[Rfam]
RNA: c-di-AMP riboswitch aptamer (ydaO/yuaA leader)
RNA sequence: UGAGCAAGUCAGCCUAAUCUAAGGUUAACAACCUGAGAGCGGAGGAACCAAUUUUUGGGGCGCAUUUCUGCUAUUUUUGUGAGGAGAUAGGCAGAGAAGGAUAACUCUCAUUCCUAGCCCGUCAGCUAACUUCGUAGGCAUCGAGAGGAGACUGA
Numbered sequence: 001u002g003a004g005c006a007a008g009u010c011a012g013c014c015u016a017a018u019c020u021a022a023g024g025u026u027a028a029c030a031a032c033c034u035g036a037g038a039g040c041g042g043a044g045g046a047a048c049c050a051a052u053u054u055u056u057g058g059g060g061c062g063c064a065u066u067u068c069u070g071c072u073a074u075u076u077u078u079g080u081g082a083g084g085a086g087a088u089a090g091g092c093a094g095a096g097a098a099g100g101a102u103a104a105c106u107c108u109c110a111u112u113c114c115u116a117g118c119c120c121g122u123c124a125g126c127u128a129a130c131u132u133c134g135u136a137g138g139c140a141u142c143g144a145g146a147g148g149a150g151a152c153u154g155a
Stems, first nucleotide, its partner, number of pairs: 012139003018038003039135006049057002058120003066096007099114003